[Rfam]
RNA: SAM riboswitch aptamer (S box leader)
RNA sequence: CUCUUAUCCAGAGUGGGUGGAGGGACCCGGCCCGAUGAAGCCCCGGCAACCUGCCCGCCGCAGUCUGCGGCCGACCCGGCGAACGGCCGCGCGGGUAAGGUGCCAACUCCGGCAGAAGCGUUCGCCGCGCUUCUGGGAGAUAAGGG
Numbered sequence: 001c002u003c004u005u006a007u008c009c010a011g012a013g014u015g016g017g018u019g020g021a022g023g024g025a026c027c028c029g030g031c032c033c034g035a036u037g038a039a040g041c042c043c044c045g046g047c048a049a050c051c052u053g054c055c056c057g058c059c060g061c062a063g064u065c066u067g068c069g070g071c072c073g074a075c076c077c078g079g080c081g082a083a084c085g086g087c088c089g090c091g092c093g094g095g096u097a098a099g100g101u102g103c104c105a106a107c108u109c110c111g112g113c114a115g116a117a118g119c120g121u122u123c124g125c126c127g128c129g130c131u132u133c134u135g136g137g138a139g140a141u142a143a144g145g146g
Base pairs, nucleotide, nucleotide: 001146002145003144004143005142006141007140008139013044015043016042017041018040022033023032024031027112028111029110030109045104046103047102048101050100051099054094055093108138113135114134115133116132117131118130119129120128121127